The family of this 138-nucleotide sequence from Bifidobacterium actinocoloniiforme is "FMN riboswitch aptamer (RFN element)". About the family: The RFN element is a highly conserved domain that is found frequently in the 5'-untranslated regions of prokaryotic mRNAs that encode for flavin mononucleotide (FMN) biosynthesis and transport proteins. The base pairs follow the family's consensus structure, which is taken from published work. Lineage of the source: Bacteria > Actinomycetes > Bifidobacteriaceae > Bifidobacterium > Bifidobacterium actinocoloniiforme.
RNA sequence: UCCAAGUUUCAGGGAAGGUGAAAUUCCUUACUGGCGGUAGCUGAGUCACGUCACUCAGGAGCCCGCGACCCGCGCAAGCGGUGGAUGUCGGUGAGAAUCCGAAGCCAACGGUCACAGUCCGGAUGGAAGAAACGAGGC
Dot-bracket structure: ..(..(((((.....(((.......))).[[((((((.......................[[))))...((........))....(.((((.......)))))]])).(((.....]]))).......)))))..)..
Numbered sequence: 001u002c003c004a005a006g007u008u009u010c011a012g013g014g015a016a017g018g019u020g021a022a023a024u025u026c027c028u029u030a031c032u033g034g035c036g037g038u039a040g041c042u043g044a045g046u047c048a049c050g051u052c053a054c055u056c057a058g059g060a061g062c063c064c065g066c067g068a069c070c071c072g073c074g075c076a077a078g079c080g081g082u083g084g085a086u087g088u089c090g091g092u093g094a095g096a097a098u099c100c101g102a103a104g105c106c107a108a109c110g111g112u113c114a115c116a117g118u119c120c121g122g123a124u125g126g127a128a129g130a131a132a133c134g135a136g137g138c
Stems, first nucleotide, its partner, number of pairs: 003136001006133005016028003030118002032107002034066004061105002070081002086103001088102004109121003